[Rfam]
RNA: Ribosomal protein L20 leader
Organism: Lottiidibacillus patelloidae
RNA sequence: UAUUGAAAGUAGAAGCACCCGCUUCUCACCUCGUCAACGCAUAUUUGCAGUUGAGUGGUAGAUGAACUAAUCAUUUAAUAGUCAGAUUAGGACUUUAGUGUGGGUGCAGUAUGUACCGACGCUUUUUUUAAUGC
Numbered sequence: 001u002a003u004u005g006a007a008a009g010u011a012g013a014a015g016c017a018c019c020c021g022c023u024u025c026u027c028a029c030c031u032c033g034u035c036a037a038c039g040c041a042u043a044u045u046u047g048c049a050g051u052u053g054a055g056u057g058g059u060a061g062a063u064g065a066a067c068u069a070a071u072c073a074u075u076u077a078a079u080a081g082u083c084a085g086a087u088u089a090g091g092a093c094u095u096u097a098g099u100g101u102g103g104g105u106g107c108a109g110u111a112u113g114u115a116c117c118g119a120c121g122c123u124u125u126u127u128u129u130a131a132u133g134c
Stems, first nucleotide, its partner, number of pairs: 011026006028059003036052003039048002099121003103117006